[Rfam]
Notes: A member of the RNA family "Nuclear RNase P" from Zootermopsis nevadensis, 287 nucleotides long. Rfam links the family to the GO terms ribonuclease P complex, tRNA processing and ribonuclease P activity. The source organism's lineage runs through Eukaryota, Arthropoda, Mandibulata, Blattodea and Zootermopsis. Rfam classes the family as a ribozyme.
RNA sequence: GCCAGAGACAAGCUUGCACUAGGGGCUCACCCACAGGGUACUAGUUACCCAAGUACAGCCUCGGGAAGGUCUGAGUCAGGGUCUGUUAACACUCUAGCAGGGUGGCCUGUUAAAAGGGUGUGAGAGAAUAGAAAUAGCGGAAGUAGAGUGGCAGUUGUCUGGGAUGCCAUUGUGGCUGAGGCUGAGCUGCUCAACUUUCUUGGAAGCUCUCAUGACCUGCAUUUUGAGUGCAAUGUGCAAGAAGGACCAUGUGUCCCUAACUCAAUUCAGACUACUCUGUUGCUGGC
Numbered sequence: 001g002c003c004a005g006a007g008a009c010a011a012g013c014u015u016g017c018a019c020u021a022g023g024g025g026c027u028c029a030c031c032c033a034c035a036g037g038g039u040a041c042u043a044g045u046u047a048c049c050c051a052a053g054u055a056c057a058g059c060c061u062c063g064g065g066a067a068g069g070u071c072u073g074a075g076u077c078a079g080g081g082u083c084u085g086u087u088a089a090c091a092c093u094c095u096a097g098c099a100g101g102g103u104g105g106c107c108u109g110u111u112a113a114a115a116g117g118g119u120g121u122g123a124g125a126g127a128a129u130a131g132a133a134a135u136a137g138c139g140g141a142a143g144u145a146g147a148g149u150g151g152c153a154g155u156u157g158u159c160u161g162g163g164a165u166g167c168c169a170u171u172g173u174g175g176c177u178g179a180g181g182c183u184g185a186g187c188u189g190c191u192c193a194a195c196u197u198u199c200u201u202g203g204a205a206g207c208u209c210u211c212a213u214g215a216c217c218u219g220c221a222u223u224u225u226g227a228g229u230g231c232a233a234u235g236u237g238c239a240a241g242a243a244g245g246a247c248c249a250u251g252u253g254u255c256c257c258u259a260a261c262u263c264a265a266u267u268c269a270g271a272c273u274a275c276u277c278u279g280u281u282g283c284u285g286g287c
Stems, first nucleotide, its partner, number of pairs: 001287004008280003013241007022062005036050005071270005080217004090104005105119004120213007140199003242258001244256004